[Rfam]
This 134-nucleotide RNA sequence from Loxodonta africana belongs to the Rfam family "U11 spliceosomal RNA".

RNA sequence: AAAAAGGGCCUCUGUUGUGAAGUGGCACACUUAGGGCAUCUCUAUUGCUCUACGUGUGGAAUCGACAUCAGGAGAUUUCAGAAGUGUAAUUUUUGCUCCCUGGGUAGCUAGUGAUUUUUGGUUCUGGCAAAGAA
Dot-bracket structure: .......((.(((((((.....)))))(((.(((((((.......))))))).)))(((((((..........))))))))).))...................(.(((((.((((...)))))))))).....
Numbered sequence: 001a002a003a004a005a006g007g008g009c010c011u012c013u014g015u016u017g018u019g020a021a022g023u024g025g026c027a028c029a030c031u032u033a034g035g036g037c038a039u040c041u042c043u044a045u046u047g048c049u050c051u052a053c054g055u056g057u058g059g060a061a062u063c064g065a066c067a068u069c070a071g072g073a074g075a076u077u078u079c080a081g082a083a084g085u086g087u088a089a090u091u092u093u094u095g096c097u098c099c100c101u102g103g104g105u106a107g108c109u110a111g112u113g114a115u116u117u118u119u120g121g122u123u124c125u126g127g128c129a130a131a132g133a134a
Stems, first nucleotide, its partner, number of pairs: 008085002011082002013027005028056003032052007057080007105129001107128005113123004
A search with the family's covariance model found it, with a score of 84 bits.